[Rfam]
The family of this 72-nucleotide sequence from Blautia sp. CAG:257 is "Fluoride riboswitch aptamer (crcB RNA motif)". A search with the family's covariance model found it, with a score of 45 bits. The family's consensus secondary structure is taken from published work.

RNA sequence: AAUGAAUUUGGGAAUGAAGUUCUCCCAAGGGAAACCUGAACUGCUUAUUAAGCUGAUGACUUCUGAGAUUAU
Numbered sequence: 001a002a003u004g005a006a007u008u009u010g011g012g013a014a015u016g017a018a019g020u021u022c023u024c025c026c027a028a029g030g031g032a033a034a035c036c037u038g039a040a041c042u043g044c045u046u047a048u049u050a051a052g053c054u055g056a057u058g059a060c061u062u063c064u065g066a067g068a069u070u071a072u
Stems, first nucleotide, its partner, number of pairs: 010026004016063006043053003